Rfam assigns this 138-nucleotide RNA sequence from Neomoorella humiferrea to the family "Molybdenum/Tungsten riboswitch aptamer (Moco RNA motif)". The match comes from Rfam's covariance-model search (85 bits).
RNA sequence: AAUAACUUUAUCCUCCGAGCCAACCUGUCCUAAAGGAAAGAUCCCAUGGCGGGUAGGCCUGGACCUUUUGGUCCACGGGGUAUACCGGGAAACUGGUAUGCCUUCCAGGUAUCGAAAAGGAGGGGGUGACUAUAUUAG
Numbered sequence: 001a002a003u004a005a006c007u008u009u010a011u012c013c014u015c016c017g018a019g020c021c022a023a024c025c026u027g028u029c030c031u032a033a034a035g036g037a038a039a040g041a042u043c044c045c046a047u048g049g050c051g052g053g054u055a056g057g058c059c060u061g062g063a064c065c066u067u068u069u070g071g072u073c074c075a076c077g078g079g080g081u082a083u084a085c086c087g088g089g090a091a092a093c094u095g096g097u098a099u100g101c102c103u104u105c106c107a108g109g110u111a112u113c114g115a116a117a118a119g120g121a122g123g124g125g126g127u128g129a130c131u132a133u134a135u136u137a138g
Stems, first nucleotide, its partner, number of pairs: 003132002011124006019058003023054004029049002035044003060075005078103011104115002